A member of the RNA family "Bacillaceae-1 RNA" from Pontibacillus yanchengensis, 61 nucleotides long.
RNA sequence: UUAAAUAGAGUUAAGACCGCUGCAUCGUGCAGCAACAUCGAACCAACCCACGUCGUGUGGG
Number, nucleotide and partner (000 for none) at each position: 001u000002u000003a000004a000005a000006u042007a000008g000009a000010g038011u037012u000013a000014a000015g000016a000017c000018c000019g033020c032021u031022g030023c029024a000025u000026c000027g000028u000029g023030c022031a021032g020033c019034a000035a000036c000037a011038u010039c000040g000041a000042a006043c000044c000045a000046a000047c061048c060049c059050a058051c057052g000053u000054c000055g000056u000057g051058u050059g049060g048061g047

The base pairs follow the family's consensus structure, which is taken from published work. The match comes from Rfam's covariance-model search (38 bits).